The family of this 172-nucleotide sequence from Paenibacillus sp. J31TS4 is "FMN riboswitch aptamer (RFN element)". The family's consensus secondary structure is taken from published work.
RNA sequence: ACAUUCCUUCGGGGCAGGGUGAAAUUCCCUACCGGCGGUGAUUCCGGCACGAGCCUCCCUCCAGCGGAGCGGAAGGCGCCGGCAAGUCCGUGACCCGUGCAGGCAGCCGCCUGCCGGUGGAUUCGGUGCAAAUCCGAAACCGACAGUAUAGUCUGGAUGGGAGAAGGAAGAU
Numbered sequence: 001a002c003a004u005u006c007c008u009u010c011g012g013g014g015c016a017g018g019g020u021g022a023a024a025u026u027c028c029c030u031a032c033c034g035g036c037g038g039u040g041a042u043u044c045c046g047g048c049a050c051g052a053g054c055c056u057c058c059c060u061c062c063a064g065c066g067g068a069g070c071g072g073a074a075g076g077c078g079c080c081g082g083c084a085a086g087u088c089c090g091u092g093a094c095c096c097g098u099g100c101a102g103g104c105a106g107c108c109g110c111c112u113g114c115c116g117g118u119g120g121a122u123u124c125g126g127u128g129c130a131a132a133u134c135c136g137a138a139a140c141c142g143a144c145a146g147u148a149u150a151g152u153c154u155g156g157a158u159g160g161g162a163g164a165a166g167g168a169a170g171a172u
Base pairs, nucleotide, nucleotide: 004169005168006167007166008165009164010163017029018028019027031152032151033142034141035091036090037089038088095117096116122138123137124136125135126134144155145154146153